[Rfam]
RNA sequence: CGUGCUGCUGUAAACAUCCUUGACUGGAAGCUGUGUGGUGACUUGAGGGCUUUCAGUCAGAUGUUUGCAGCUGUUGG
Numbered sequence: 001c002g003u004g005c006u007g008c009u010g011u012a013a014a015c016a017u018c019c020u021u022g023a024c025u026g027g028a029a030g031c032u033g034u035g036u037g038g039u040g041a042c043u044u045g046a047g048g049g050c051u052u053u054c055a056g057u058c059a060g061a062u063g064u065u066u067g068c069a070g071c072u073g074u075u076g077g
Base pairs, nucleotide, nucleotide: 004074005073008070009069010068011067012066013065014064015063016062017061018060023057024056025055026054027053028052029051030050031049032048
The family of this 77-nucleotide sequence from Callorhinchus milii is "mir-30 microRNA precursor family". Lineage of the source: Eukaryota > Deuterostomia > Craniata > Chondrichthyes > Callorhinchus. On this family, see Lagos-Quintana et al., Science 2001: "Identification of novel genes coding for small expressed RNAs". Rfam's curators write: This family consists of the mammalian microRNA (miRNA) precursor mir-30a. Animal miRNAs are transcribed as ~70nt precursors and subsequently processed by the Dicer enzyme to give a ~22nt product.